[Rfam]
RNA: mir-980 microRNA precursor family
Organism: Phaedon cochleariae
RNA sequence: UUUGCUAUAGGGCUCGUCAUAGGGUAACUGGCGUAUUUUUCACAGCUAGCUGCCUUUUGAAGGGCAAUAUUGCAGG
Number, nucleotide and partner (000 for none) at each position: 001u000002u000003u000004g073005c072006u000007a070008u069009a068010g000011g000012g065013c064014u063015c062016g000017u060018c059019a058020u000021a000022g000023g054024g053025u000026a000027a000028c049029u048030g047031g046032c045033g000034u000035a000036u000037u000038u000039u000040u000041c000042a000043c000044a000045g032046c031047u030048a029049g028050c000051u000052g000053c024054c023055u000056u000057u000058u019059g018060a017061a000062g015063g014064g013065c012066a000067a000068u009069a008070u007071u000072g005073c004074a000075g000076g000